[Rfam]
A member of the RNA family "Bacterial RNase P class A" from Micropruina glycogenica, 388 nucleotides long. The family's RNA type in Rfam is ribozyme. Ribonuclease P (RNase P) is a ubiquitous endoribonuclease, found in archaea, bacteria and eukarya as well as chloroplasts and mitochondria. Rfam links the family to the GO terms dimeric ribonuclease P complex, tRNA processing and ribonuclease P activity. The organism belongs to Micropruina, within Bacteria.

RNA sequence: CGAGUCGGCCGGGUGAUCGCAGCGCAAGCUGAGGAAAGUCCGGACUCCACAGGGCAGGGUGGUGGGUAACACCCACCCGGGGUGACCCGCGGGACAGUGCCACAGAGAACAGACCGCCGCCGGUGACGGCGGUAAGGGUGAAACGGCGGUGUAAGAGACCACCAGCACCCCAGGUGACUGGGGUGGCUAGGCAAACCCCACCCGGAGCAAGACCAAGAAGGGCCCCCGUCUUCGGACGAGAGCCCGCGGACGCCGUUCGAGCGCUGCCCGCGCGAGGCGUCCGGGUAGGUUGCACGCCCACGGGCGAAGGCGGCUGGCAACAGCCGUCGCAGAUGGAUGAUCACCGGCCCUCGGGCCACAGAAUCCGGCUUACAGGCCGGCUCGUCCC
Dot-bracket structure: ((((((((((((((((((.((((....))))....[[[.[[[[[((((...[[[[.((((((((((.....)))))(((((....)))).)((...(((((............(((((((((....)))))))..)).......((.(((.......))).)).(((((((((....)))))))).)..)))..)))))))))))))...((((......((.(.(..................................((((.]]]]))))...).).)).....)))).................((((((((....))))))))..........)))))))..................]]]]]]]].).))))))))))....
Numbered sequence: 001c002g003a004g005u006c007g008g009c010c011g012g013g014u015g016a017u018c019g020c021a022g023c024g025c026a027a028g029c030u031g032a033g034g035a036a037a038g039u040c041c042g043g044a045c046u047c048c049a050c051a052g053g054g055c056a057g058g059g060u061g062g063u064g065g066g067u068a069a070c071a072c073c074c075a076c077c078c079g080g081g082g083u084g085a086c087c088c089g090c091g092g093g094a095c096a097g098u099g100c101c102a103c104a105g106a107g108a109a110c111a112g113a114c115c116g117c118c119g120c121c122g123g124u125g126a127c128g129g130c131g132g133u134a135a136g137g138g139u140g141a142a143a144c145g146g147c148g149g150u151g152u153a154a155g156a157g158a159c160c161a162c163c164a165g166c167a168c169c170c171c172a173g174g175u176g177a178c179u180g181g182g183g184u185g186g187c188u189a190g191g192c193a194a195a196c197c198c199c200a201c202c203c204g205g206a207g208c209a210a211g212a213c214c215a216a217g218a219a220g221g222g223c224c225c226c227c228g229u230c231u232u233c234g235g236a237c238g239a240g241a242g243c244c245c246g247c248g249g250a251c252g253c254c255g256u257u258c259g260a261g262c263g264c265u266g267c268c269c270g271c272g273c274g275a276g277g278c279g280u281c282c283g284g285g286u287a288g289g290u291u292g293c294a295c296g297c298c299c300a301c302g303g304g305c306g307a308a309g310g311c312g313g314c315u316g317g318c319a320a321c322a323g324c325c326g327u328c329g330c331a332g333a334u335g336g337a338u339g340a341u342c343a344c345c346g347g348c349c350c351u352c353g354g355g356c357c358a359c360a361g362a363a364u365c366c367g368g369c370u371u372a373c374a375g376g377c378c379g380g381c382u383c384g385u386c387c388c
Stems, first nucleotide, its partner, number of pairs: 001384010011373001012345007020031004036371003040368005045207004052269004057203005062076005077091001078089004092198002097196002099192003114137002116133007145163002148160003165187001166185008211291004221282002224279001226277001261273004309328008